[Rfam]
RNA sequence: UGGAUUAGGGGAGAUGUGACUGGGCCUAUGCUUAUAGCUGGGCUUAGGAAAGUCCCCGGGCCCAUACUGCAGAAAUGCAGGCCCUGCAAGGGGUCACUACGAGCUGAACUUGCGGCUGAGACAUGUGUGGAGCCUAUGCUUGUUCUGCCGUAGUAAUUGGCCAAUUUCUCACAGUCAUCCACAUGGUCACCAUGACUAACAGAACGGGGCUUACUCCCUCCUAAUCC
Numbered sequence: 001u002g003g004a005u006u007a008g009g010g011g012a013g014a015u016g017u018g019a020c021u022g023g024g025c026c027u028a029u030g031c032u033u034a035u036a037g038c039u040g041g042g043c044u045u046a047g048g049a050a051a052g053u054c055c056c057c058g059g060g061c062c063c064a065u066a067c068u069g070c071a072g073a074a075a076u077g078c079a080g081g082c083c084c085u086g087c088a089a090g091g092g093g094u095c096a097c098u099a100c101g102a103g104c105u106g107a108a109c110u111u112g113c114g115g116c117u118g119a120g121a122c123a124u125g126u127g128u129g130g131a132g133c134c135u136a137u138g139c140u141u142g143u144u145c146u147g148c149c150g151u152a153g154u155a156a157u158u159g160g161c162c163a164a165u166u167u168c169u170c171a172c173a174g175u176c177a178u179c180c181a182c183a184u185g186g187u188c189a190c191c192a193u194g195a196c197u198a199a200c201a202g203a204a205c206g207g208g209g210c211u212u213a214c215u216c217c218c219u220c221c222u223a224a225u226c227c
Stems, first nucleotide, its partner, number of pairs: 002227007009219003014184005022045007050212003054209004068079004080095006097153003103148002106145004112139001114134003123128001186196004
RNA: RNase MRP